This 192-nucleotide RNA from Mycobacterium manitobense belongs to the Rfam family "Actinobacteria sRNA Ms_IGR-5". By type it is a small RNA.
RNA sequence: ACACAGGAAGGGAGGUGGUCCGACAUUUUGAAUGACUUAUGGACAUGUGAGGUGGCUGCGAGCUAGCAGCACCAAGGGGGACCGCCGUUCGGCGAAACUACUUGCGCGCGCUGGCGAAUUCCCCGCAGUCACCCGGCCCCCGAGCCCCUCGGUCCGUCCAGCUGUGGAUCCUUGGCUCGGGGGCCGCUCCAU
Dot-bracket structure: ..............(((((...................................)))))..((((((.((.(.(((........................)))..).))))))))..................(((((((((((((.(.((((.......)))).).......)))))))))))))......
The match comes from Rfam's covariance-model search (164 bits).